[Rfam]
RNA sequence: GAUACGCCGUCUGAAGAGCCAUCACCUCGCGUGAUGCACCGAAGGAGCAAACCCGUUGCAAGGUGCAACAGGUGAAUCUCUCAGGUACCAAGGACAGGGGGAGCGGC
Numbered sequence: 001g002a003u004a005c006g007c008c009g010u011c012u013g014a015a016g017a018g019c020c021a022u023c024a025c026c027u028c029g030c031g032u033g034a035u036g037c038a039c040c041g042a043a044g045g046a047g048c049a050a051a052c053c054c055g056u057u058g059c060a061a062g063g064u065g066c067a068a069c070a071g072g073u074g075a076a077u078c079u080c081u082c083a084g085g086u087a088c089c090a091a092g093g094a095c096a097g098g099g100g101g102a103g104c105g106g107c
Stems, first nucleotide, its partner, number of pairs: 007101002010098004020036004038086003041082002045080003051073002
Notes
The record is a 107-nucleotide sequence from Variovorax paradoxus, which matches "Glycine riboswitch aptamer" in Rfam. Rfam describes the family as follows. This family represents the bacterial glycine riboswitch. Rfam links the family to the GO term glycine biosynthetic process. The match comes from Rfam's covariance-model search (52 bits).